[Rfam]
RNA: Small nucleolar RNA SNORA25
Organism: Oenanthe oenanthe
RNA sequence: AGGUCACUUCAAAGAGGGUUUGCAUGGCUGAAAAACCAGCAGCUCUUAACGCGGUGACCGCAUAUUGAAAUCCUCUUCAGGAUGCCGUGGACACUCCAUGUGUUCUAUGGUCUAUUUCUGAGGAGAUAACACC
Numbered sequence: 001a002g003g004u005c006a007c008u009u010c011a012a013a014g015a016g017g018g019u020u021u022g023c024a025u026g027g028c029u030g031a032a033a034a035a036c037c038a039g040c041a042g043c044u045c046u047u048a049a050c051g052c053g054g055u056g057a058c059c060g061c062a063u064a065u066u067g068a069a070a071u072c073c074u075c076u077u078c079a080g081g082a083u084g085c086c087g088u089g090g091a092c093a094c095u096c097c098a099u100g101u102g103u104u105c106u107a108u109g110g111u112c113u114a115u116u117u118c119u120g121a122g123g124a125g126a127u128a129a130c131a132c133c
Stems, first nucleotide, its partner, number of pairs: 002059006014047007023039001026037002073125004079119004087108004092102003